[Rfam]
RNA: RpsF leader
RNA sequence: GUCACACAUCUUUUGUUCCUUGCCUCUUAGCGGUCUGACUGAACCCAGAACGAGGCUGAUUAACCCGUAAGGAGCUUUUAAAUG
Numbered sequence: 001g002u003c004a005c006a007c008a009u010c011u012u013u014u015g016u017u018c019c020u021u022g023c024c025u026c027u028u029a030g031c032g033g034u035c036u037g038a039c040u041g042a043a044c045c046c047a048g049a050a051c052g053a054g055g056c057u058g059a060u061u062a063a064c065c066c067g068u069a070a071g072g073a074g075c076u077u078u079u080a081a082a083u084g
Stems, first nucleotide, its partner, number of pairs: 015075007022056005030045001